The record is a 60-nucleotide RNA from Otolemur garnettii, which matches "Selenocysteine insertion sequence 1" in Rfam.
Pairs were carried over by alignment from the consensus structure, which is taken from published work.
The family's RNA type in Rfam is cis-regulatory element.
Taxonomically the source falls in Otolemur (Eukaryota, Chordata, Gnathostomata, Euarchontoglires).
For this family Rfam cites "A novel RNA structural motif in the selenocysteine insertion element of eukaryotic selenoprotein mRNAs" (Walczak et al., RNA, 1996).
About the family: The incorporation of selenocysteine into a protein sequence is directed by an in-frame UGA codon (usually a stop codon) within the coding region of the mRNA. Selenoprotein mRNAs contain a conserved secondary structure in the 3' UTR that is required for the distinction of UGA stop from UGA selenocysteine. The selenocysteine insertion sequence (SECIS) is around 60 nt in length and adopts a hairpin structure which is sufficiently well-defined and conserved to act as a computational screen for selenoprotein genes.

RNA sequence: GCAGCCCCAUGACAGCUGGAUCCGAAAUCCUAGAUGGAUCCAGCUUGAUGUCUCUGCAGU
Numbered sequence: 001g002c003a004g005c006c007c008c009a010u011g012a013c014a015g016c017u018g019g020a021u022c023c024g025a026a027a028u029c030c031u032a033g034a035u036g037g038a039u040c041c042a043g044c045u046u047g048a049u050g051u052c053u054c055u056g057c058a059g060u
Base pairs, nucleotide, nucleotide: 001060002059004057005056014045015044016043017042018041019040020039021038022037023036028034029033